The record is a 70-nucleotide RNA sequence from Polypterus senegalus, which matches "mir-10 microRNA precursor family" in Rfam. Gene Ontology terms of the family: miRNA-mediated post-transcriptional gene silencing and RISC complex.

RNA sequence: CGCCACAAACCCGUAGAUCCGAACUUGUGCUCUUGAGCAUCACAAGCUCGCAUCUAUAGGUACGUGUCUG
Dot-bracket structure: .(.(((...((...((((.(((.((((((...........)))))).))).))))...))...))).)..